[Rfam]
Nucleotides: 179
Base pairs, nucleotide, nucleotide: 018073019072021070022069023068024067028063029062030061031060035053038050039049040048041047042046098173099172100171102169103168104167106165121150123148125146126145127144128143
Number, partner (000 for none) and nucleotide at each position: 001000c002000c003000u004000u005000c006000c007000a008000u009000c010000c011000a012000a013000a014000a015000g016000a017000a018073c019072u020000g021070u022069g023068c024067u025000u026000a027000a028063a029062u030061u031060a032000c033000a034000g035053a036000a037000u038050c039049c040048a041047g042046g043000u044000c045000u046042c047041c048040u049039g050038g051000u052000u053035u054000a055000u056000g057000u058000a059000a060031u061030a062029a063028u064000g065000c066000c067024a068023g069022c070021a071000g072019a073018g074000u075000g076000a077000a078000a079000g080000c081000a082000u083000g084000g085000a086000a087000g088000g089000a090000g091000a092000c093000g094000a095000a096000c097000g098173u099172g100171c101000c102169c103168u104167g105000u106165g107000c108000c109000g110000g111000a112000a113000a114000u115000g116000a117000a118000a119000c120000u121150u122000g123148g124000c125146c126145g127144g128143a129000c130000c131000u132000c133000u134000u135000u136000c137000u138000u139000a140000a141000u142000g143128u144127c145126u146125g147000g148123u149000g150121g151000c152000c153000u154000u155000u156000g157000u158000u159000u160000c161000a162000a163000g164000g165106c166000u167104c168103a169102g170000u171100g172099c173098a174000a175000c176000a177000g178000u179000u
Shown here is a 179-nucleotide sequence from Clarias magur, a member of the family "Small nucleolar RNA SNORA81". Its family is annotated with RNA processing and nucleolus in the Gene Ontology. By type it is an H/ACA-box small nucleolar RNA.